[Rfam]
RNA sequence: AGACUGCGAUGAUGCAGGAGGUUGCCGACACACCCGGCCGCUUUGCCAUGGCGAGUGUGUAGGGAUAUUUCUGCGGAGAAUGUCUAUUUAAAAAUAGGCGAUAA
Numbered sequence: 001a002g003a004c005u006g007c008g009a010u011g012a013u014g015c016a017g018g019a020g021g022u023u024g025c026c027g028a029c030a031c032a033c034c035c036g037g038c039c040g041c042u043u044u045g046c047c048a049u050g051g052c053g054a055g056u057g058u059g060u061a062g063g064g065a066u067a068u069u070u071c072u073g074c075g076g077a078g079a080a081u082g083u084c085u086a087u088u089u090a091a092a093a094a095u096a097g098g099c100g101a102u103a104a
Base pairs, nucleotide, nucleotide: 014074015073016072018071019070020069021068025063026062028060029059030058031057032056033055081103082102083101084100087098088097089096
RNA: S10-Clostridia ribosomal protein leader
Organism: Niallia endozanthoxylica